[Rfam]
RNA sequence: GAUUGGCUAGAAUGAUGAUUCAAUUAGAUGUGUGAAAGGUGAAAUCCUUUUUGAACAUAAUUAUUGAGGCAUAUUUAAUUGUCUGACUUGUUGCCAAUC
Numbered sequence: 001g002a003u004u005g006g007c008u009a010g011a012a013u014g015a016u017g018a019u020u021c022a023a024u025u026a027g028a029u030g031u032g033u034g035a036a037a038g039g040u041g042a043a044a045u046c047c048u049u050u051u052u053g054a055a056c057a058u059a060a061u062u063a064u065u066g067a068g069g070c071a072u073a074u075u076u077a078a079u080u081g082u083c084u085g086a087c088u089u090g091u092u093g094c095c096a097a098u099c
Base pairs, nucleotide, nucleotide: 001099002098003097004096005095006094007093009088010087
The record is a 99-nucleotide RNA sequence from Castanea mollissima, which matches "Small nucleolar RNA Z266" in Rfam. Gene Ontology terms of the family: RNA processing and nucleolus. It scores 74 bits against the family's covariance model. By type it is a C/D-box small nucleolar RNA. Lineage of the source: Eukaryota > Streptophytina > fabids > Fagaceae > Castanea.